[Rfam]
RNA sequence: GUCGAAAGCAUUGCACCCAGAGUCUGACUGCCAGACAUUGUACCUGGAGCUUGUCAAUAAAGUUCUUG
Numbered sequence: 001g002u003c004g005a006a007a008g009c010a011u012u013g014c015a016c017c018c019a020g021a022g023u024c025u026g027a028c029u030g031c032c033a034g035a036c037a038u039u040g041u042a043c044c045u046g047g048a049g050c051u052u053g054u055c056a057a058u059a060a061a062g063u064u065c066u067u068g
Stems, first nucleotide, its partner, number of pairs: 006052004017047004022036005
This 68-nucleotide sequence from Eleutherodactylus coqui belongs to the Rfam family "U1A polyadenylation inhibition element (PIE)". This family represents the U1A polyadenylation inhibition element (PIE). PIE is a regulatory RNA which is responsible for the regulation of the length of the polyA tail of the U1A pre-mRNA. The PIE is located in the U1A mRNA 3' UTR. PIE adopts a U-shaped structure, with binding sites for a single U1A protein at each bend and when complexed with the two proteins it blocks activity of poly(A) polymerase (PAP), and inhibits its activity. A reference for the family is Varani et al. (2000), "The NMR structure of the 38 kDa U1A protein - PIE RNA complex reveals the basis of cooperativity in regulation of polyadenylation by human U1A protein", Nat Struct Biol. The family's RNA type in Rfam is cis-regulatory element. The base pairs follow the family's consensus structure, which is taken from published work. Gene Ontology term of the family: regulation of mRNA polyadenylation.